Eukaryotic large subunit ribosomal RNA: a 302-nucleotide part of an RNA from Rhizoclosmatium globosum. Rfam links the family to the GO terms ribosome and structural constituent of ribosome. The source organism's lineage runs through Eukaryota, Fungi, Chytridiomycota, Chytridiomycetes and Rhizoclosmatium.
Nucleotides: 302
Base pairs, nucleotide, nucleotide: 001284002283003282004281005280006279007278008277009276010275011274012273017059018058019057020056021055023053024052063266064265065264066263067262068261069260287302288301289300290299
Number, partner (000 for none) and nucleotide at each position: 001284c002283g003282u004281u005280u006279g007278a008277a009276a010275c011274c012273a013000g014000u015000a016000u017059c018058g019057g020056a021055g022000g023053g024052c025000g026000a027000u028000g029000g030000a031000c032000a033000a034000c035000c036000g037000c038000a039000a040000g041000g042000u043000g044000c045000a046000u047000u048000c049000a050000u051000c052024g053023c054000a055021u056020u057019c058018u059017g060000u061000g062000c063266c064265a065264g066263c067262g068261a069260c070000a071000u072000u073000u074000u075000g076000g077000u078000c079000u080000g081000a082000a083000g084000u085000a086000a087000a088000u089000a090000g091000a092000u093000u094000a095000g096000g097000g098000a099000a100000u101000g102000u103000a104000g105000g106000u107000c108000c109000u110000c111000g112000g113000a114000c115000u116000g117000u118000u119000a120000u121000a122000g123000c124000c125000u126000u127000g128000g129000u130000u131000u132000g133000u134000g135000c136000u137000u138000u139000g140000g141000a142000u143000u144000a145000g146000a147000a148000u149000g150000a151000u152000g153000a154000u155000c156000g157000c158000c159000a160000c161000u162000g163000c164000c165000u166000u167000g168000g169000g170000g171000a172000a173000g174000c175000a176000g177000c178000u179000g180000c181000c182000u183000c184000g185000a186000a187000g188000c189000u190000a191000c192000c193000g194000c195000c196000u197000g198000u199000g200000g201000a202000c203000a204000a205000c206000u207000u208000g209000u210000u211000g212000a213000u214000c215000a216000u217000g218000g219000g220000u221000g222000a223000a224000u225000a226000g227000u228000u229000a230000g231000g232000g233000a234000u235000c236000g237000g238000u239000u240000g241000u242000g243000u244000a245000c246000c247000a248000c249000u250000c251000u252000c253000a254000g255000u256000g257000u258000a259000g260069g261068u262067c263066g264065c265064u266063g267000g268000u269000g270000a271000a272000a273012u274011g275010g276009u277008u278007u279006u280005a281004a282003g283002c284001g285000a286000c287302c288301c289300g290299u291000c292000u293000u294000g295000a296000a297000a298000c299290a300289c301288g302287g